[Rfam]
RNA: Betaproteobacteria toxic small RNA
RNA sequence: UGUCUCCUCCACCUCCUCCUUUGGUGGAUUCAGCCCCCGAACCGCAAGGUCCGGGGGCUUUUUUCU
Numbered sequence: 001u002g003u004c005u006c007c008u009c010c011a012c013c014u015c016c017u018c019c020u021u022u023g024g025u026g027g028a029u030u031c032a033g034c035c036c037c038c039g040a041a042c043c044g045c046a047a048g049g050u051c052c053g054g055g056g057g058c059u060u061u062u063u064u065c066u
Base pairs, nucleotide, nucleotide: 008028009027010026011025012024013023032059033058034057035056036055037054038053039052